RNA: c-di-GMP-I riboswitch aptamer
Organism: Niallia nealsonii
RNA sequence: AGUACGAAAAGGCAAAAUUGUUGAAAAGCAAUGACGCAAAACUAUAGGGGCUAUCGUCAUUAGACUAUGCUAGCCAGUUACCGAA
Numbered sequence: 001a002g003u004a005c006g007a008a009a010a011g012g013c014a015a016a017a018u019u020g021u022u023g024a025a026a027a028g029c030a031a032u033g034a035c036g037c038a039a040a041a042c043u044a045u046a047g048g049g050g051c052u053a054u055c056g057u058c059a060u061u062a063g064a065c066u067a068u069g070c071u072a073g074c075c076a077g078u079u080a081c082c083g084a085a
Stems, first nucleotide, its partner, number of pairs: 012037002017032006040079004047075002049071003056065003